Rfam assigns this 103-nucleotide RNA sequence from Musca domestica to the family "Mitochondrial DNA control region secondary structure A". A reference for the family is Pereira et al. (2008), "Evidence for variable selective pressures at a large secondary structure of the human mitochondrial DNA control region", Mol Biol Evol. Lineage of the source: Eukaryota > Bilateria > Ecdysozoa > Muscini > Musca. Pairs were carried over by alignment from the consensus structure, which is taken from published work. The match comes from Rfam's covariance-model search (40 bits).
RNA sequence: UUAUCCAACGUGGAUUAUAUUUAUCCAACGUGGAUAAUAUUUAUCCAACGUGGAUAAUAUUUAUCCACCGUGGAUAAUAUUUAUCCAACGUGGAUAAUAUUUA
Numbered sequence: 001u002u003a004u005c006c007a008a009c010g011u012g013g014a015u016u017a018u019a020u021u022u023a024u025c026c027a028a029c030g031u032g033g034a035u036a037a038u039a040u041u042u043a044u045c046c047a048a049c050g051u052g053g054a055u056a057a058u059a060u061u062u063a064u065c066c067a068c069c070g071u072g073g074a075u076a077a078u079a080u081u082u083a084u085c086c087a088a089c090g091u092g093g094a095u096a097a098u099a100u101u102u103a
Stems, first nucleotide, its partner, number of pairs: 006093001008091004012086002017080003022036006037058002040054004063075005
Dot-bracket structure: .....(.((((((...(((..((((((...))))))((.((((.......))))..))....(((((...)))))..)))....)).)))).)..........